[Rfam]
RNA sequence: CCCUUCUUUACCAAAAGCACCAUGCCAAAAUCAGCAGGUCUGAACCAUUUCACGUUUAGUCCUGUUGAUCAUGCUGGUACGGUACAUCAUGAAGAAGGAACAGCAAAAACCACAGUGUCAGAAAUGAGACCUGAAGGGACCUCUUUCUUAAUGUCCUGUGUCCUGCGUCUCAAGAUCCUGUGCUACACUU
Dot-bracket structure: ...................((.(((((..((.(...((.((((((..(...).)))))).))......).))..))))).))..........................(.(((((.(................(.((((..............)))).)................).))))).)......
RNA: Small nucleolar RNA SNORA81